[Rfam]
RNA sequence: CGAGCCGGCCGGACGGCCGCGUCAGGGCGCUUCGCGUCCUGCCGAGGAAGGUCCGGGCUCCACAGGGCAGGGUGGUCGGUAACGCCGACCCGGGGUGACCCGCGGGAAAGUGCCACAGAGAGCAGACCGCCCCUCCUCGGAGGGGUAAGGGUGAAAGGGUGGUGUAAGAGACCACCAGCGCCCACGGCGACGUGGGCGGCUAGGCAAACCCCACCCGGAGCAAGGUCAAGAAGGGGUGUUUCCGUCUGGAAGCACCCCGCGCACGGCGUUCGAGGGCGGCCCGCCCGAGUCGUGCGGGUAGACCGCUUGAGGCCACGAGCAAUCGUGGUCCUAGAUGGAUGGCCGUCGGUCUGUGGAGCAACCCUCCACAGACGCACAAAACCCGGCCUACAGGCCGACUCGUCCG
Numbered sequence: 001c002g003a004g005c006c007g008g009c010c011g012g013a014c015g016g017c018c019g020c021g022u023c024a025g026g027g028c029g030c031u032u033c034g035c036g037u038c039c040u041g042c043c044g045a046g047g048a049a050g051g052u053c054c055g056g057g058c059u060c061c062a063c064a065g066g067g068c069a070g071g072g073u074g075g076u077c078g079g080u081a082a083c084g085c086c087g088a089c090c091c092g093g094g095g096u097g098a099c100c101c102g103c104g105g106g107a108a109a110g111u112g113c114c115a116c117a118g119a120g121a122g123c124a125g126a127c128c129g130c131c132c133c134u135c136c137u138c139g140g141a142g143g144g145g146u147a148a149g150g151g152u153g154a155a156a157g158g159g160u161g162g163u164g165u166a167a168g169a170g171a172c173c174a175c176c177a178g179c180g181c182c183c184a185c186g187g188c189g190a191c192g193u194g195g196g197c198g199g200c201u202a203g204g205c206a207a208a209c210c211c212c213a214c215c216c217g218g219a220g221c222a223a224g225g226u227c228a229a230g231a232a233g234g235g236g237u238g239u240u241u242c243c244g245u246c247u248g249g250a251a252g253c254a255c256c257c258c259g260c261g262c263a264c265g266g267c268g269u270u271c272g273a274g275g276g277c278g279g280c281c282c283g284c285c286c287g288a289g290u291c292g293u294g295c296g297g298g299u300a301g302a303c304c305g306c307u308u309g310a311g312g313c314c315a316c317g318a319g320c321a322a323u324c325g326u327g328g329u330c331c332u333a334g335a336u337g338g339a340u341g342g343c344c345g346u347c348g349g350u351c352u353g354u355g356g357a358g359c360a361a362c363c364c365u366c367c368a369c370a371g372a373c374g375c376a377c378a379a380a381a382c383c384c385g386g387c388c389u390a391c392a393g394g395c396c397g398a399c400u401c402g403u404c405c406g
Base pairs, nucleotide, nucleotide: 001402002401003400004399006397007396008395009394010393011391012347013346014345015344016343017342018341020044021043023041024040025039026038027037028036049389050388051387053386054385055384056383057382058220059219060218061217065282066281067280068279070216071215072214073213074212075089076088077087078086079085090104091102092101093100094099105211106210110209111208112205113204114203127150128149129146130145131144132143133142134141135140158176159175160174161173162172163171178200179198180197181196182195183194184193185192186191224304225303226302227301234295236293237292238291274286275285276284277283311330312329313328314327315326316325317324318323
A member of the RNA family "Bacterial RNase P class A" from Streptosporangiaceae bacterium NEAU-GS5, 406 nucleotides long.
The family's consensus secondary structure is taken from published work.
Lineage of the source: Bacteria > Actinomycetota > Actinomycetes > Streptosporangiales > Streptosporangiaceae.